Description
terC RNA: a 59-nucleotide RNA sequence from Microvirga guangxiensis.
RNA sequence: CGUGCGGACCGGGCCCCUCUGACGAUCAGCAAUGCCGGUCGUGAUGUCGGGCCGCACCG
Numbered sequence: 001c002g003u004g005c006g007g008a009c010c011g012g013g014c015c016c017c018u019c020u021g022a023c024g025a026u027c028a029g030c031a032a033u034g035c036c037g038g039u040c041g042u043g044a045u046g047u048c049g050g051g052c053c054g055c056a057c058c059g
Base pairs, nucleotide, nucleotide: 006053007052009050010049011048012047022042023041024040025039026038027037029035
It is annotated as a cis-regulatory element. The base pairs follow the family's consensus structure, which is taken from published work.